[Rfam]
RNA sequence: UGGUUAAAACGCCCGUAGUUGAUUGUUCGACUCUGGUGCGCGGUAUCCCGUAAGGGUUUUACUGUUGCACCGAGUCUAAUUUUGAGUUUUCCGGCGAUGCCCUUAAUUGGGUGUCGUCGGUGACUCGAACGUUUACUUUGAAAAAAUUAGAGUGCUCAAAGCAAGCUUUACGCUUGGAUAUAGUGCAUGGGAUAAUGGAAUAUGACUUUAGUCUUAUUUUGUUGGUUUUCGAGAUUAAAGUAAUGAUUAAGAGGAACAGACGGGGGCAUUCGUAUUGUUGCGUUAGAGGUGAAAUUCUUGGAUCGCAGCAAGACGAACAACUGCGAAAGCAUUUGCCAAGAAUGUUUUCAUUAAUCAAGGACGAAAGUUAGAGGUUCGAAGGCGAUCAGAUACCGCCCUAGUUCUAACCGUAAACGAUGCCAACUAGCCAUUCGCCGGUGUUAAUUUAUGACUCGGCGGGCAGCUUCCGGGAAACCAAAGUUUUUGGGUUCCGGGGGAAGUAUGGUUGCAAAGCUUAAACUUAAAGGAAU
Numbered sequence: 001u002g003g004u005u006a007a008a009a010c011g012c013c014c015g016u017a018g019u020u021g022a023u024u025g026u027u028c029g030a031c032u033c034u035g036g037u038g039c040g041c042g043g044u045a046u047c048c049c050g051u052a053a054g055g056g057u058u059u060u061a062c063u064g065u066u067g068c069a070c071c072g073a074g075u076c077u078a079a080u081u082u083u084g085a086g087u088u089u090u091c092c093g094g095c096g097a098u099g100c101c102c103u104u105a106a107u108u109g110g111g112u113g114u115c116g117u118c119g120g121u122g123a124c125u126c127g128a129a130c131g132u133u134u135a136c137u138u139u140g141a142a143a144a145a146a147u148u149a150g151a152g153u154g155c156u157c158a159a160a161g162c163a164a165g166c167u168u169u170a171c172g173c174u175u176g177g178a179u180a181u182a183g184u185g186c187a188u189g190g191g192a193u194a195a196u197g198g199a200a201u202a203u204g205a206c207u208u209u210a211g212u213c214u215u216a217u218u219u220u221g222u223u224g225g226u227u228u229u230c231g232a233g234a235u236u237a238a239a240g241u242a243a244u245g246a247u248u249a250a251g252a253g254g255a256a257c258a259g260a261c262g263g264g265g266g267c268a269u270u271c272g273u274a275u276u277g278u279u280g281c282g283u284u285a286g287a288g289g290u291g292a293a294a295u296u297c298u299u300g301g302a303u304c305g306c307a308g309c310a311a312g313a314c315g316a317a318c319a320a321c322u323g324c325g326a327a328a329g330c331a332u333u334u335g336c337c338a339a340g341a342a343u344g345u346u347u348u349c350a351u352u353a354a355u356c357a358a359g360g361a362c363g364a365a366a367g368u369u370a371g372a373g374g375u376u377c378g379a380a381g382g383c384g385a386u387c388a389g390a391u392a393c394c395g396c397c398c399u400a401g402u403u404c405u406a407a408c409c410g411u412a413a414a415c416g417a418u419g420c421c422a423a424c425u426a427g428c429c430a431u432u433c434g435c436c437g438g439u440g441u442u443a444a445u446u447u448a449u450g451a452c453u454c455g456g457c458g459g460g461c462a463g464c465u466u467c468c469g470g471g472a473a474a475c476c477a478a479a480g481u482u483u484u485u486g487g488g489u490u491c492c493g494g495g496g497g498a499a500g501u502a503u504g505g506u507u508g509c510a511a512a513g514c515u516u517a518a519a520c521u522u523a524a525a526g527g528a529a530u
Stems, first nucleotide, its partner, number of pairs: 001493003009490001011362001013360002018355003253349004257344002261340001265337004271315002275311008286297003323330002367408006377401001381397004419489003422482003426465003431460008440452003469476002495522003504515004

Shown here is a 530-nucleotide part of an RNA from Meloidogyne floridensis, a member of the family "Eukaryotic small subunit ribosomal RNA". Its Rfam clan is "SSU clan". On this family, see Cannone et al., BMC Bioinformatics 2002: "The comparative RNA web (CRW) site: an online database of comparative sequence and structure information for ribosomal, intron, and other RNAs". Rfam 15.1 lists 75,755 matches to the family in 2,556 species. A search with the family's covariance model found it, with a score of 1743 bits. Pairs were carried over by alignment from the consensus structure, which is taken from published work.